[Rfam]
RNA: SAM riboswitch aptamer (S box leader)
RNA sequence: UCACCAUCCAGAGCGACCGAGAGACCUUGGCUCGAUGACGUCGCAGCAACCCCGCCCUACGGCGUGUGGGUGCUACCGCCAGGACCGAUGGAGG
Number, nucleotide and partner (000 for none) at each position: 001u094002c093003a000004c091005c090006a089007u088008c087009c000010a000011g000012a000013g044014c043015g042016a041017c040018c000019g000020a000021g033022a032023g031024a000025c000026c000027u082028u081029g080030g079031c023032u022033c021034g000035a000036u000037g000038a000039c000040g017041u016042c015043g014044c013045a074046g073047c072048a071049a000050c070051c069052c066053c000054g000055c000056c000057c000058u000059a000060c000061g000062g000063c000064g000065u000066g052067u000068g000069g051070g050071u048072g047073c046074u045075a000076c000077c000078g086079c030080c029081a028082g027083g000084a000085c000086c078087g008088a007089u006090g005091g004092a000093g002094g001